[Rfam]
RNA: Archaeal large subunit ribosomal RNA, nucleotides 1713 to 2069
RNA sequence: CAAGAUAACUCUCGUUAGGGAAGUCGGCAAACUAGCCCUGUAACUUUGGGAUAAAGGGUGCCUGCCAUUCGCAUGGCAGGUUUCAAUAACAAGAGGAUUCCGACUGUUUAAUAAAAACGUAGGUCCCUGCAAAUUCGUAAGGACGUGUAUAGGGGCUGAUACCUGCCCAGUGACAGUAUGUCAAACUCCGGUCCAACGGAGUGAAGCACUGUUAAACGGCGGGGGUAACUAUGACCCUCUUAAGGUAGCGUAAUACCUUGCCGCUUAAUUGGCGGCUUGCAUGAACGGUUUAACGAGAUUCCUGCUGUCCCAACGAGAGACUUGGUGAACCAACGGUCUUGGUGUAUAGGCCAGGGA
Numbered sequence: 001c002a003a004g005a006u007a008a009c010u011c012u013c014g015u016u017a018g019g020g021a022a023g024u025c026g027g028c029a030a031a032c033u034a035g036c037c038c039u040g041u042a043a044c045u046u047u048g049g050g051a052u053a054a055a056g057g058g059u060g061c062c063u064g065c066c067a068u069u070c071g072c073a074u075g076g077c078a079g080g081u082u083u084c085a086a087u088a089a090c091a092a093g094a095g096g097a098u099u100c101c102g103a104c105u106g107u108u109u110a111a112u113a114a115a116a117a118c119g120u121a122g123g124u125c126c127c128u129g130c131a132a133a134u135u136c137g138u139a140a141g142g143a144c145g146u147g148u149a150u151a152g153g154g155g156c157u158g159a160u161a162c163c164u165g166c167c168c169a170g171u172g173a174c175a176g177u178a179u180g181u182c183a184a185a186c187u188c189c190g191g192u193c194c195a196a197c198g199g200a201g202u203g204a205a206g207c208a209c210u211g212u213u214a215a216a217c218g219g220c221g222g223g224g225g226u227a228a229c230u231a232u233g234a235c236c237c238u239c240u241u242a243a244g245g246u247a248g249c250g251u252a253a254u255a256c257c258u259u260g261c262c263g264c265u266u267a268a269u270u271g272g273c274g275g276c277u278u279g280c281a282u283g284a285a286c287g288g289u290u291u292a293a294c295g296a297g298a299u300u301c302c303u304g305c306u307g308u309c310c311c312a313a314c315g316a317g318a319g320a321c322u323u324g325g326u327g328a329a330c331c332a333a334c335g336g337u338c339u340u341g342g343u344g345u346a347u348a349g350g351c352c353a354g355g356g357a
Stems, first nucleotide, its partner, number of pairs: 001324004009319008018310003035059005044049001060081009082086001094303004099298002101295002105119003122157008130147001134143003161289003165220003170217002172213005179208003186201005221239006240244001260276006338355005